The record is a 58-nucleotide RNA from Caenorhabditis bovis, which matches "mir-255 microRNA precursor family" in Rfam. The family's consensus secondary structure was predicted with RNAalifold. Its family is annotated with RISC complex and miRNA-mediated post-transcriptional gene silencing in the Gene Ontology. The match comes from Rfam's covariance-model search (67 bits).
RNA sequence: GUAAGAAAUCUUUUAAGUUCUCCGUAAUAAACGCGAAAACUGAAAAGAUUUGUUACAG
Numbered sequence: 001g002u003a004a005g006a007a008a009u010c011u012u013u014u015a016a017g018u019u020c021u022c023c024g025u026a027a028u029a030a031a032c033g034c035g036a037a038a039a040c041u042g043a044a045a046a047g048a049u050u051u052g053u054u055a056c057a058g
Stems, first nucleotide, its partner, number of pairs: 001056004006051008016041004021036002023033003